[Rfam]
RNA sequence: AACGACCGGCCGGAUGCGCCCAGACAUAUGUCAGCGUGCUCGGCCCACAAGUGGAGGCUCCGAUCUCCCACCCGACCGUCCUCAGGGAUGGCGGGUCACCCGGUCAGGCGGCCACCACCGUUCCGUACGGACGGUGGAGUCGCCCGAAUGUGCGCCCCGCGGUUCACCGCGGCGGUGUUCCGGUAUUCCUUGGAGCCCCGCCUGUGUACCGUCCGGGGCAUUUUUC
Number, nucleotide and partner (000 for none) at each position: 001a000002a000003c000004g105005a104006c103007c102008g101009g100010c000011c000012g041013g040014a000015u000016g000017c000018g000019c000020c000021c000022a000023g000024a000025c000026a000027u000028a000029u000030g000031u000032c000033a000034g000035c000036g000037u000038g000039c000040u013041c012042g097043g096044c095045c094046c093047a000048c074049a000050a000051g071052u070053g069054g068055a066056g065057g000058c000059u000060c000061c000062g000063a000064u000065c056066u055067c000068c054069c053070a052071c051072c000073c000074g048075a000076c091077c090078g089079u088080c087081c086082u000083c000084a000085g000086g081087g080088a079089u078090g077091g076092c000093g046094g045095g044096u043097c042098a000099c000100c009101c008102g007103g006104u005105c004106a000107g144108g143109c142110g000111g141112c000113c000114a000115c137116c136117a135118c134119c133120g132121u131122u130123c000124c000125g000126u000127a000128c000129g000130g122131a121132c120133g119134g118135u117136g116137g115138a000139g000140u000141c111142g109143c108144c107145c000146g000147a000148a000149u000150g000151u000152g000153c000154g219155c218156c217157c216158c215159g214160c211161g210162g209163u000164u000165c000166a000167c000168c206169g205170c204171g202172g201173c200174g199175g198176u000177g196178u195179u194180c193181c192182g000183g000184u000185a000186u000187u000188c000189c000190u000191u000192g181193g180194a179195g178196c177197c000198c175199c174200g173201c172202c171203u000204g170205u169206g168207u000208a000209c162210c161211g160212u000213c000214c159215g158216g157217g156218g155219c154220a000221u000222u000223u000224u000225u000226c000

Description:
Rfam assigns this 226-nucleotide sequence from Streptomyces olivochromogenes to the family "Streptomyces RNA 1601". The organism belongs to Streptomyces, within Bacteria. The literature on the family includes a 2011 paper in RNA Biol by Vockenhuber et al., "Deep sequencing-based identification of small non-coding RNAs in Streptomyces coelicolor". Rfam's curators write: Identified by deep sequencing of transcriptome at the end of exponential growth phase. Appears longer on northern blot than sequencing transcript. Streptomyces specific.